Annotation:
This 97-nucleotide RNA sequence from Intrasporangium calvum belongs to the Rfam family "Glycine riboswitch aptamer". The match comes from Rfam's covariance-model search (64 bits). The family has 44 seed sequences and 9,425 matches in Rfam 15.1. This family represents the bacterial glycine riboswitch.
[Rfam]
RNA sequence: CGAAUCGCAGCGGGAGAGUUCGCGACCAGCCAGUCGCGGCGCCGAAGGAGCAACUUCUCCCCAGAAUCUCUCAGGCCCCCAUGACCGUUGCGAUGAG
Numbered sequence: 001c002g003a004a005u006c007g008c009a010g011c012g013g014g015a016g017a018g019u020u021c022g023c024g025a026c027c028a029g030c031c032a033g034u035c036g037c038g039g040c041g042c043c044g045a046a047g048g049a050g051c052a053a054c055u056u057c058u059c060c061c062c063a064g065a066a067u068c069u070c071u072c073a074g075g076c077c078c079c080c081a082u083g084a085c086c087g088u089u090g091c092g093a094u095g096a097g
Stems, first nucleotide, its partner, number of pairs: 006092008020039004041076003044072002048070003054064002